[Rfam]
The family of this 164-nucleotide sequence from Vibrio paucivorans is "DABA-DC-AT RNA". The organism belongs to Vibrio, within Bacteria.
RNA sequence: GCAAUCUCGGACGUUGGAAUUACCAAUGGUUUUCUGGGGGAUACGCGCAGUGACCAUUCGAGCUGAUUGUGACAUUGCGUAGGGUAGGUAUCGGCAAGUCCUUUUGUCGAUAGACGGGAUACUAAGUGCUGUUUUAUAACAGUACGUAUAUGGGAAACCCAACA
Numbered sequence: 001g002c003a004a005u006c007u008c009g010g011a012c013g014u015u016g017g018a019a020u021u022a023c024c025a026a027u028g029g030u031u032u033u034c035u036g037g038g039g040g041a042u043a044c045g046c047g048c049a050g051u052g053a054c055c056a057u058u059c060g061a062g063c064u065g066a067u068u069g070u071g072a073c074a075u076u077g078c079g080u081a082g083g084g085u086a087g088g089u090a091u092c093g094g095c096a097a098g099u100c101c102u103u104u105u106g107u108c109g110a111u112a113g114a115c116g117g118g119a120u121a122c123u124a125a126g127u128g129c130u131g132u133u134u135u136a137u138a139a140c141a142g143u144a145c146g147u148a149u150a151u152g153g154g155a156a157a158c159c160c161a162a163c164a
Base pairs, nucleotide, nucleotide: 006038007037008036009035010034011033045080046079047078048077049076050075051074052073055069056068089112090111091110092109093108094107095106096105097104098103127144128143129142130141131140132139
Dot-bracket structure: .....((((((.....................))))))......((((((((..((...........))...))))))))........((((((((((....))))))))))..............((((((......))))))....................

Overview: The family's RNA type in Rfam is cis-regulatory element. A search with the family's covariance model found it, with a score of 139 bits.